[Rfam]
RNA sequence: UUGAAGGAUUAUAUCGAAGAAUCAAAUGAUGGGGUAACGCCCGGAAGGGUUCUCUCUAAGUCGAUUAGCACUUGAAUGAGUAAGACUGAUAGUGUUAUAAGCUCGGUGAAAAGGCAUAAGAAUUUACCGUAACAGUUCCGGCUGACGAAAACCUACUCGCGGGAGUGGUGUAAAUCAUGAUGCUUGAGUUGAAUGA
Number, nucleotide and partner (000 for none) at each position: 001u000002u000003g000004a000005a000006g000007g000008a000009u000010u000011a000012u000013a000014u000015c000016g000017a000018a053019g052020a051021a050022u049023c048024a000025a000026a000027u000028g000029a000030u000031g000032g042033g041034g040035u000036a000037a000038c000039g000040c034041c033042c032043g000044g000045a000046a000047g000048g023049g022050u021051u020052c019053u018054c188055u187056c186057u000058a000059a000060g000061u106062c105063g104064a103065u000066u097067a096068g095069c094070a093071c092072u091073u000074g000075a000076a000077u000078g087079a000080g000081u000082a000083a000084g000085a000086c000087u078088g000089a000090u000091a072092g071093u070094g069095u068096u067097a066098u000099a000100a000101g000102c000103u064104c063105g062106g061107u000108g000109a000110a000111a000112a000113g184114g183115c182116a181117u180118a000119a000120g000121a000122a175123u174124u173125u172126a171127c170128c147129g146130u145131a000132a000133c000134a143135g142136u000137u000138c000139c000140g000141g000142c135143u134144g000145a130146c129147g128148a000149a000150a000151a169152c168153c167154u000155a166156c165157u164158c163159g000160c000161g000162g000163g158164a157165g156166u155167g153168g152169u151170g127171u126172a125173a124174a123175u122176c000177a000178u000179g000180a117181u116182g115183c114184u113185u000186g056187a055188g054189u000190u000191g000192a000193a000194u000195g000196a000
A member of the RNA family "Group II catalytic intron D1-D4-5" from Salipaludibacillus neizhouensis, 196 nucleotides long. The literature on the family includes a 2001 paper in Trends Genet by Bonen and Vogel, "The ins and outs of group II introns". Pairs were carried over by alignment from the consensus structure. NCBI's taxonomy places the organism under Bacteria, Bacillota, Bacilli, Caryophanales, Salipaludibacillus. Rfam links the family to the GO term Group II intron splicing. Group II introns are found in rRNA, tRNA and mRNA of organelles in fungi, plants and protists, and also in mRNA in bacteria. Rfam 15.1 lists 720 matches to the family in 418 species.